Shown here is an 83-nucleotide RNA from Synechococcus phage BUCT-ZZ01, a member of the family "tRNA". The family's consensus secondary structure is taken from published work.
[Rfam]
RNA sequence: GCUGGAUUAGCCAAGUGGUUGACGGCACCUGACUUGUAAUCAGGCGGAGAAAUCCCUCGCAGGUUCGAAUCCUGUGUCCAGCA
Numbered sequence: 001g002c003u004g005g006a007u008u009a010g011c012c013a014a015g016u017g018g019u020u021g022a023c024g025g026c027a028c029c030u031g032a033c034u035u036g037u038a039a040u041c042a043g044g045c046g047g048a049g050a051a052a053u054c055c056c057u058c059g060c061a062g063g064u065u066c067g068a069a070u071c072c073u074g075u076g077u078c079c080a081g082c083a
Stems, first nucleotide, its partner, number of pairs: 001082007010026003028044005059075005
Overview
Transfer RNA (tRNA) molecules are approximately 80 nucleotides in length. Taxonomically the source falls in Kyanoviridae (Viruses, Duplodnaviria, Uroviricota, Pantevenvirales).